[Rfam]
RNA: Acido-Lenti-1 RNA
Organism: Cyclonatronum proteinivorum
RNA sequence: CCCGGGGUUAGCACCCCGGGCUGUGAUAUGCCGCCCCGUUGGGGCU
Dot-bracket structure: ((((((((....))))))))............(((((...))))).